The record is a 360-nucleotide RNA from Roseburia sp. OF03-24, which matches "Bacterial RNase P class A" in Rfam. Taxonomically the source falls in Roseburia (Bacteria, Bacillati, Clostridia, Lachnospiraceae). The family's consensus secondary structure is taken from published work. It scores 303 bits against the family's covariance model. Gene Ontology terms of the family: ribonuclease P activity, dimeric ribonuclease P complex and tRNA processing.
[Rfam]
RNA sequence: UAAGUAGGACAAAUGAUCGCGGCCCGUUUAUCGGGGUGAGGAAAGUCCGGGCUUCACAGGGCAGGAUGCCGGAUAACGUCCGGUAGAGGCGACUCUAAGGAUAGUGCAACAGAAAUAUACCGCCCGGUAUAUACCGGGUAAGGGUGGAAGGGCAGUGUAAGAGACUACCGUCUCUCUGGUAACAGAGAGGGCAUAUGUAAACCCCAUCCGAAGCAAGACCGAACAAAAGCGUUGACGUGGCCCGCCAGCUUUAGGUAGGUUGCUUGAGGCGGCUGGUAACAGUCGUCCUAGAUAGAUGAUCAUUCCGACUGUGGCUUGCCACAGUUUAGACAUAACCCGGCUUAUCGUCCUGCUUAAACC
Numbered sequence: 001u002a003a004g005u006a007g008g009a010c011a012a013a014u015g016a017u018c019g020c021g022g023c024c025c026g027u028u029u030a031u032c033g034g035g036g037u038g039a040g041g042a043a044a045g046u047c048c049g050g051g052c053u054u055c056a057c058a059g060g061g062c063a064g065g066a067u068g069c070c071g072g073a074u075a076a077c078g079u080c081c082g083g084u085a086g087a088g089g090c091g092a093c094u095c096u097a098a099g100g101a102u103a104g105u106g107c108a109a110c111a112g113a114a115a116u117a118u119a120c121c122g123c124c125c126g127g128u129a130u131a132u133a134c135c136g137g138g139u140a141a142g143g144g145u146g147g148a149a150g151g152g153c154a155g156u157g158u159a160a161g162a163g164a165c166u167a168c169c170g171u172c173u174c175u176c177u178g179g180u181a182a183c184a185g186a187g188a189g190g191g192c193a194u195a196u197g198u199a200a201a202c203c204c205c206a207u208c209c210g211a212a213g214c215a216a217g218a219c220c221g222a223a224c225a226a227a228a229g230c231g232u233u234g235a236c237g238u239g240g241c242c243c244g245c246c247a248g249c250u251u252u253a254g255g256u257a258g259g260u261u262g263c264u265u266g267a268g269g270c271g272g273c274u275g276g277u278a279a280c281a282g283u284c285g286u287c288c289u290a291g292a293u294a295g296a297u298g299a300u301c302a303u304u305c306c307g308a309c310u311g312u313g314g315c316u317u318g319c320c321a322c323a324g325u326u327u328a329g330a331c332a333u334a335a336c337c338c339g340g341c342u343u344a345u346c347g348u349c350c351u352g353c354u355u356a357a358a359c360c
Stems, first nucleotide, its partner, number of pairs: 001356010011345001012304007020038002023035004043343003047340005052213004059242002062239001064209005069083005084098001085096004099204002104202002106198003120143002122139007151169002154166003170192001171190008217261004226252005234246001236244002268287008